[Rfam]
RNA: MIR7504 microRNA precursor family
RNA sequence: AAUGAGAGAAUGACAAAUCAGAUUUUUUCACCUGAUUUUCAGCUUUUUUCUCUUAAAAAAAUUCAAAUCAAACUAAAAACACUAAAAAUCAGGAAAAAAAAUCUGAUUUAUUAUUCUCCCAUU
Number, nucleotide and partner (000 for none) at each position: 001a123002a122003u121004g120005a000006g118007a117008g116009a115010a114011u113012g112013a111014c000015a109016a108017a107018u106019c105020a104021g103022a102023u101024u100025u099026u098027u097028u000029c000030a000031c093032c092033u091034g090035a089036u088037u087038u086039u085040c000041a083042g082043c000044u000045u079046u078047u077048u076049u000050c000051u000052c000053u000054u000055a000056a000057a000058a000059a000060a000061a000062u000063u000064c000065a000066a000067a000068u000069c000070a000071a000072a000073c000074u000075a000076a048077a047078a046079a045080c000081a000082c042083u041084a000085a039086a038087a037088a036089u035090c034091a033092g032093g031094a000095a000096a000097a027098a026099a025100a024101a023102u022103c021104u020105g019106a018107u017108u016109u015110a000111u013112u012113a011114u010115u009116c008117u007118c006119c000120c004121a003122u002123u001